[Rfam]
RNA: Makes More Granules Regulator RNA (mmgR)
Organism: Phenylobacterium kunshanense
RNA sequence: GGGUCCUGCCCUUUUGGGCGUUUCCUCCCUAUGAACUGGCCGCGCCUCCGGGCGCGGCCUUUUUUUCUUGCCGC
Dot-bracket structure: .......((((....))))..................(((((((((....)))))))))...............